[Rfam]
RNA: Group II catalytic intron D1-D4-3
RNA sequence: UCGCCGGUAACAGCGGGGUCUGAAGGAAGCGAUAGGAAGUGAACAGCACAUAACGCAAGUGAACCUGAUUCGGCCCGGUGGGUGGGUAAGCGUGCAUGAGAACGUAAAGCCCAAUGCCUGAUCAAACCCACUGAGGUGACUGAGGAUGGCGUUGUUCACAGGGAGCCU
Numbered sequence: 001u002c003g004c005c006g007g008u009a010a011c012a013g014c015g016g017g018g019u020c021u022g023a024a025g026g027a028a029g030c031g032a033u034a035g036g037a038a039g040u041g042a043a044c045a046g047c048a049c050a051u052a053a054c055g056c057a058a059g060u061g062a063a064c065c066u067g068a069u070u071c072g073g074c075c076c077g078g079u080g081g082g083u084g085g086g087u088a089a090g091c092g093u094g095c096a097u098g099a100g101a102a103c104g105u106a107a108a109g110c111c112c113a114a115u116g117c118c119u120g121a122u123c124a125a126a127c128c129c130a131c132u133g134a135g136g137u138g139a140c141u142g143a144g145g146a147u148g149g150c151g152u153u154g155u156u157c158a159c160a161g162g163g164a165g166c167c168u
Base pairs, nucleotide, nucleotide: 001016002015003014004013006011031167033165041157042156043155044154045153046152049148050147051146064145065144066143068141073137074136075135076133077132078131079130080129081128082127084112085111086110087109090105091104092103093102